[Rfam]
RNA sequence: ACGUACCCCAAGGUACGCUCCGGUUCCUGCGCUCCGUCCGCCUAACCUGGCACCUGCUCGCUACGCCGUCCGGCC
Numbered sequence: 001a002c003g004u005a006c007c008c009c010a011a012g013g014u015a016c017g018c019u020c021c022g023g024u025u026c027c028u029g030c031g032c033u034c035c036g037u038c039c040g041c042c043u044a045a046c047c048u049g050g051c052a053c054c055u056g057c058u059c060g061c062u063a064c065g066c067c068g069u070c071c072g073g074c075c
Stems, first nucleotide, its partner, number of pairs: 002017005021036003026031001047073004052069002
Description: A member of the RNA family "Xanthomonas sRNA sX9" from Polaromonas sp. A23, 75 nucleotides long. The base pairs follow the family's consensus structure, which was predicted with RNAalifold. The organism belongs to Polaromonas, within Bacteria. By type it is a small RNA.